RNA sequence: UCAUAUUGCAGAUAGAAAUAUGCUGUAUACUCGUGUAACCGAAUUAACGUUUAAGUGUCAUUUUAUGGCACAGGCCACGGGGAACGCCGAAAGGCGUUUUUUUCAUAUA
Numbered sequence: 001u002c003a004u005a006u007u008g009c010a011g012a013u014a015g016a017a018a019u020a021u022g023c024u025g026u027a028u029a030c031u032c033g034u035g036u037a038a039c040c041g042a043a044u045u046a047a048c049g050u051u052u053a054a055g056u057g058u059c060a061u062u063u064u065a066u067g068g069c070a071c072a073g074g075c076c077a078c079g080g081g082g083a084a085c086g087c088c089g090a091a092a093g094g095c096g097u098u099u100u101u102u103u104c105a106u107a108u109a
Stems, first nucleotide, its partner, number of pairs: 007027005012021003030081006039074002042051003055071006082099007

Record summary:
DUF3800-I RNA: a 109-nucleotide sequence. It is one of the family's seed sequences. Actinobacteria, Firmicutes, Fusobacteria, Proteobacteria (1 example), Tenericutes (2 examples).